[Rfam]
RNA sequence: ACGGAAGCCCGUUGAGGCCAAGGUCGGUCCGGAAGAGAAGGUUCGAUCUCCCGAUUCGGGCACCCAGCACGAGUCCCGGCACCCACGCGGAGUCAUAGCCGCGAUAAUGGCAGAAGUGUUGCGGGCCUGCGUAAUUGCGAAAAGUUAACGGUGUCGACGGCCCUUUGGGUGGGGUUGCAGCCGGAAGCGUCGCAAGAUCGCCGAGGCCACCCACGCAGCCCAAAGAUGCACGCUUGGUAACCGAGAUUCGUGUUUGCGGGCGGCGCUCCGAAAUCCUUCGGAACGCCGCCCGCUUCAUGCG
Numbered sequence: 001a002c003g004g005a006a007g008c009c010c011g012u013u014g015a016g017g018c019c020a021a022g023g024u025c026g027g028u029c030c031g032g033a034a035g036a037g038a039a040g041g042u043u044c045g046a047u048c049u050c051c052c053g054a055u056u057c058g059g060g061c062a063c064c065c066a067g068c069a070c071g072a073g074u075c076c077c078g079g080c081a082c083c084c085a086c087g088c089g090g091a092g093u094c095a096u097a098g099c100c101g102c103g104a105u106a107a108u109g110g111c112a113g114a115a116g117u118g119u120u121g122c123g124g125g126c127c128u129g130c131g132u133a134a135u136u137g138c139g140a141a142a143a144g145u146u147a148a149c150g151g152u153g154u155c156g157a158c159g160g161c162c163c164u165u166u167g168g169g170u171g172g173g174g175u176u177g178c179a180g181c182c183g184g185a186a187g188c189g190u191c192g193c194a195a196g197a198u199c200g201c202c203g204a205g206g207c208c209a210c211c212c213a214c215g216c217a218g219c220c221c222a223a224a225g226a227u228g229c230a231c232g233c234u235u236g237g238u239a240a241c242c243g244a245g246a247u248u249c250g251u252g253u254u255u256g257c258g259g260g261c262g263g264c265g266c267u268c269c270g271a272a273a274u275c276c277u278u279c280g281g282a283a284c285g286c287c288g289c290c291c292g293c294u295u296c297a298u299g300c301g
Base pairs, nucleotide, nucleotide: 003064004063007061008060009059010058011057016052017051021049022048025045026044027043029041030040066254067253068252069251070250071249072248073247077243078242079241083237084236085235087233088232089231092229093228098111099110100109118219119218120217121216122215123214124208125207126206127205128204129201130200131199135195136194137193138192139191140190144188145187146186149183150182151181152180158177159176160175161174162173163172164171256293257292258291259290260289261288262287263286264285265284268281269280270279
This 301-nucleotide sequence from Mycobacterium conspicuum belongs to the Rfam family "Mycobacterium smegmatis small RNA 1". Rfam describes the family as follows. Mycobacterium smegmatis small RNA 1 is highly expressed during stationary phase of growth. A search with the family's covariance model found it, with a score of 247 bits. For this family Rfam cites "Ms1, a novel sRNA interacting with the RNA polymerase core in mycobacteria" (Hnilicova et al., Nucleic Acids Res, 2014). Taxonomically the source falls in Mycobacterium (Bacteria, Actinomycetota, Mycobacteriales, Mycobacteriaceae).